[Rfam]
RNA: Ruegeria cis52 sRNA
RNA sequence: UGCGCAGCGCAUGUUUCAUCACAAUAUUACCAAAGCUCACGCCUUUGAGGCGGGCCGUGCGGAUGUAUUGUGCUGUCAUCACCUCUGUCAUGGAAGCGCGCGUCAUCCGCGCAAUAUAUCCCAUCCCGUAAAGUGAAAUGGUCAGAACCGGCAAAAAGAAAUUCUCGAAAUUCGCGCUUUC
Numbered sequence: 001u002g003c004g005c006a007g008c009g010c011a012u013g014u015u016u017c018a019u020c021a022c023a024a025u026a027u028u029a030c031c032a033a034a035g036c037u038c039a040c041g042c043c044u045u046u047g048a049g050g051c052g053g054g055c056c057g058u059g060c061g062g063a064u065g066u067a068u069u070g071u072g073c074u075g076u077c078a079u080c081a082c083c084u085c086u087g088u089c090a091u092g093g094a095a096g097c098g099c100g101c102g103u104c105a106u107c108c109g110c111g112c113a114a115u116a117u118a119u120c121c122c123a124u125c126c127c128g129u130a131a132a133g134u135g136a137a138a139u140g141g142u143c144a145g146a147a148c149c150g151g152c153a154a155a156a157a158g159a160a161a162u163u164c165u166c167g168a169a170a171u172u173c174g175c176g177c178u179u180u181c
Stems, first nucleotide, its partner, number of pairs: 005140002010135003014131002016128001021124001028123001040111003046105003050101003054097001055075001057073006082096001084094003145181003149174003154165001156163002